[Rfam]
RNA sequence: ACAUCAUCACCAUUUGACCGAUUAAUCUUUCGGGCAUUUGGCGUGUUCGGAAGAUAACUUCCGAAAUAUGAAUGGUAAACGCAACUCCCAACAGUAACCAAUUUAUAACCCUUUCGGAAGGCAACUUUCGAAAGGGUUUUUUA
Numbered sequence: 001a002c003a004u005c006a007u008c009a010c011c012a013u014u015u016g017a018c019c020g021a022u023u024a025a026u027c028u029u030u031c032g033g034g035c036a037u038u039u040g041g042c043g044u045g046u047u048c049g050g051a052a053g054a055u056a057a058c059u060u061c062c063g064a065a066a067u068a069u070g071a072a073u074g075g076u077a078a079a080c081g082c083a084a085c086u087c088c089c090a091a092c093a094g095u096a097a098c099c100a101a102u103u104u105a106u107a108a109c110c111c112u113u114u115c116g117g118a119a120g121g122c123a124a125c126u127u128u129c130g131a132a133a134g135g136g137u138u139u140u141u142u143a
Base pairs, nucleotide, nucleotide: 008045009044010043011040012039018033019032020031021030046065047064048063049062050061051060052059053058105140107138108137109136110135111134112133113132114131115130116129117128118127119126120125
A member of the RNA family "Histidine operon leader" from Mannheimia varigena, 143 nucleotides long.
Pairs were carried over by alignment from the consensus structure, which is taken from published work.
Rfam links the family to the GO term histidine biosynthetic process.
Rfam classes the family as a cis-regulatory leader.
Lineage of the source: Bacteria > Pseudomonadati > Pseudomonadota > Pasteurellaceae > Mannheimia varigena.
A search with the family's covariance model found it, with a score of 65 bits.